[Rfam]
RNA sequence: AAUGCGUGCUCCUUCCAUCCCCCUUUGGGAUGCAUUUGUUUUGCUAGAAGAUCUUAACAACCCUUGUGAUGGUUCUUCAGUACAACUGACCAUUUGUGUUCAGCAACUUGAUGGUUGUACAGUCAAAGGUAUUGAGUCAUUCACGUGUGAGAAUAACUUGUCUACUUAUUAGCCUUUAAUGUUCUGGUGUGAACACGUUUAUUGUUACCUUUUUAUUGUCAGGAUUUGACUGUUUUUAUUCCAA
Numbered sequence: 001a002a003u004g005c006g007u008g009c010u011c012c013u014u015c016c017a018u019c020c021c022c023c024u025u026u027g028g029g030a031u032g033c034a035u036u037u038g039u040u041u042u043g044c045u046a047g048a049a050g051a052u053c054u055u056a057a058c059a060a061c062c063c064u065u066g067u068g069a070u071g072g073u074u075c076u077u078c079a080g081u082a083c084a085a086c087u088g089a090c091c092a093u094u095u096g097u098g099u100u101c102a103g104c105a106a107c108u109u110g111a112u113g114g115u116u117g118u119a120c121a122g123u124c125a126a127a128g129g130u131a132u133u134g135a136g137u138c139a140u141u142c143a144c145g146u147g148u149g150a151g152a153a154u155a156a157c158u159u160g161u162c163u164a165c166u167u168a169u170u171a172g173c174c175u176u177u178a179a180u181g182u183u184c185u186g187g188u189g190u191g192a193a194c195a196c197g198u199u200u201a202u203u204g205u206u207a208c209c210u211u212u213u214u215a216u217u218g219u220c221a222g223g224a225u226u227u228g229a230c231u232g233u234u235u236u237u238a239u240u241c242c243a244a
Stems, first nucleotide, its partner, number of pairs: 002148007012136003022129006028101005036088001038086002042082004047078001050075002053072001057067003103118006163238002171231002174228001183223007195213001197208002

The record is a 244-nucleotide RNA from Callorhinchus milii, which matches "Small nucleolar RNA SNORA53" in Rfam. Taxonomically the source falls in Callorhinchus (Eukaryota, Chordata, Vertebrata, Chimaeriformes).